[Rfam]
RNA sequence: UUCUUAUCAAGAGCGACCGAGGGACUGGCCCUGUGACGUCCAGCAACCUGAUUCAAAUCAAGGUGCUAAAUCCAGCAGACGUAUAGUCUGAAAGAUAAGGU
Numbered sequence: 001u002u003c004u005u006a007u008c009a010a011g012a013g014c015g016a017c018c019g020a021g022g023g024a025c026u027g028g029c030c031c032u033g034u035g036a037c038g039u040c041c042a043g044c045a046a047c048c049u050g051a052u053u054c055a056a057a058u059c060a061a062g063g064u065g066c067u068a069a070a071u072c073c074a075g076c077a078g079a080c081g082u083a084u085a086g087u088c089u090g091a092a093a094g095a096u097a098a099g100g101u
Base pairs, nucleotide, nucleotide: 002100003099004098005097006096007095008094013041015040016039017038021031022030023029025075026074027073028072042067043066044065045064047063048062049060050059051058052057071093076090077089078088079087080086
RNA: SAM riboswitch aptamer (S box leader)
Organism: Peptoclostridium litorale